[Rfam]
RNA sequence: GUGCAUCCGGUAGGAAUUGAACGUACGAAUUUACCAAUUAUGAGUUGGGCGCUUUAACCAUUCAGCCAUAGAUGC
Numbered sequence: 001g002u003g004c005a006u007c008c009g010g011u012a013g014g015a016a017u018u019g020a021a022c023g024u025a026c027g028a029a030u031u032u033a034c035c036a037a038u039u040a041u042g043a044g045u046u047g048g049g050c051g052c053u054u055u056a057a058c059c060a061u062u063c064a065g066c067c068a069u070a071g072a073u074g075c
Base pairs, nucleotide, nucleotide: 003075004074005073006072007071010026011025012024014022040069041068042067044066045065046064047063048062049061051059
RNA: Plastid-ycf2 5UTR RNA